[Rfam]
Shown here is a 129-nucleotide RNA from Digitaria exilis, a member of the family "MIR827 microRNA precursor family". Its family is annotated with RISC complex and miRNA-mediated post-transcriptional gene silencing in the Gene Ontology.

RNA sequence: ACUUGUUUUGUUGGUGGUCACCUAACCAUGCUUUCUCGUCGGUGCAUGGAUCAUGGAUGGGAUGGAUAUAUGGCAGUGUCCUGACCAUGGUCGUGCAUGCAUGGUUAGAUGACCAUCAGCAAACACGUU
Numbered sequence: 001a002c003u004u005g006u007u008u009u010g011u012u013g014g015u016g017g018u019c020a021c022c023u024a025a026c027c028a029u030g031c032u033u034u035c036u037c038g039u040c041g042g043u044g045c046a047u048g049g050a051u052c053a054u055g056g057a058u059g060g061g062a063u064g065g066a067u068a069u070a071u072g073g074c075a076g077u078g079u080c081c082u083g084a085c086c087a088u089g090g091u092c093g094u095g096c097a098u099g100c101a102u103g104g105u106u107a108g109a110u111g112a113c114c115a116u117c118a119g120c121a122a123a124c125a126c127g128u129u
Stems, first nucleotide, its partner, number of pairs: 005124004010120011022108010